This 74-nucleotide RNA sequence from Candidula unifasciata belongs to the Rfam family "mir-1175 microRNA precursor family".
The organism belongs to Candidula, within Eukaryota.

RNA sequence: UUAUGGAGUGGAGAGAGUUUUAUCUCAUCAUGCAUUUGAAAUUUGGUGAGAUUCAACUCCUCCAACUGCAGAUU
Number, nucleotide and partner (000 for none) at each position: 001u000002u000003a000004u000005g000006g000007a067008g066009u064010g063011g062012a061013g060014a000015g059016a058017g000018u000019u000020u000021u000022a000023u050024c000025u049026c048027a047028u046029c045030a044031u000032g000033c000034a000035u000036u000037u000038g000039a000040a000041a000042u000043u000044u030045g029046g028047u027048g026049a025050g023051a000052u000053u000054c000055a000056a000057c000058u016059c015060c013061u012062c011063c010064a009065a000066c008067u007068g000069c000070a000071g000072a000073u000074u000